[Rfam]
RNA sequence: CUUCGCGUUCGGGUUCUUCUUCAGCAGAUGGUUGCCGACCGCAUGCAUCAGGUGAGUCUUGCCCAGACCGACGCCACCAUA
Numbered sequence: 001c002u003u004c005g006c007g008u009u010c011g012g013g014u015u016c017u018u019c020u021u022c023a024g025c026a027g028a029u030g031g032u033u034g035c036c037g038a039c040c041g042c043a044u045g046c047a048u049c050a051g052g053u054g055a056g057u058c059u060u061g062c063c064c065a066g067a068c069c070g071a072c073g074c075c076a077c078c079a080u081a
Stems, first nucleotide, its partner, number of pairs: 005042003009038004017031002021028001051078004056074002061072001063070001
RNA: antisense RNA of dnaA mRNA